[Rfam]
RNA sequence: GGUUGAGAGUUUGAGGCCACAACAGAAGCAUUUAUGGCACAGCCUUGUCAGAUUCCAAUGAAUCUGCAAAUUCUGCU
Dot-bracket structure: .............[[[[...(.((((((...........).]]]]...(((((((....)))))))....))))).)